[Rfam]
RNA sequence: UCCUAAUGAAGAAAACCAGCACCUGUCUUACUCCUUGUCCUGGCCCCAGAGCCUGCAAAGGCGAACCCACUGGGGUCGGCUGGGGGAGAAGAUGAUAAUCUGUUCCAGCGGGAACAGUCUGAGGGAC
Dot-bracket structure: ((((......................................................................................................................)))).
Numbered sequence: 001u002c003c004u005a006a007u008g009a010a011g012a013a014a015a016c017c018a019g020c021a022c023c024u025g026u027c028u029u030a031c032u033c034c035u036u037g038u039c040c041u042g043g044c045c046c047c048a049g050a051g052c053c054u055g056c057a058a059a060g061g062c063g064a065a066c067c068c069a070c071u072g073g074g075g076u077c078g079g080c081u082g083g084g085g086g087a088g089a090a091g092a093u094g095a096u097a098a099u100c101u102g103u104u105c106c107a108g109c110g111g112g113a114a115c116a117g118u119c120u121g122a123g124g125g126a127c
Stems, first nucleotide, its partner, number of pairs: 001126004

The record is a 127-nucleotide RNA from Ornithorhynchus anatinus, which matches "Small nucleolar RNA SNORD22" in Rfam. On this family, see Tycowski et al., Nature 1996: "A mammalian gene with introns instead of exons generating stable RNA products". The family's RNA type in Rfam is C/D-box small nucleolar RNA. The family's consensus secondary structure was predicted with PFOLD. Taxonomically the source falls in Ornithorhynchus (Eukaryota, Eumetazoa, Sarcopterygii, Mammalia).